mir-27 microRNA precursor family: a 79-nucleotide sequence from Coregonus sp. 'balchen'.
RNA sequence: AGCGGCGGCAGGACUUAGCACACAUGUGAACACUGUAAGUUUACCUCCAUGUUCACAGUGGUUAAGUUCUGCCGCCCUG
Numbered sequence: 001a002g003c004g005g006c007g008g009c010a011g012g013a014c015u016u017a018g019c020a021c022a023c024a025u026g027u028g029a030a031c032a033c034u035g036u037a038a039g040u041u042u043a044c045c046u047c048c049a050u051g052u053u054c055a056c057a058g059u060g061g062u063u064a065a066g067u068u069c070u071g072c073c074g075c076c077c078u079g
Stems, first nucleotide, its partner, number of pairs: 011069009026056007
A reference for the family is Chen et al. (2005), "The developmental miRNA profiles of zebrafish as determined by small RNA cloning", Genes Dev. The base pairs follow the family's consensus structure, which was predicted with RNAalifold. The family has 82 seed sequences and 1,440 matches in Rfam 15.1.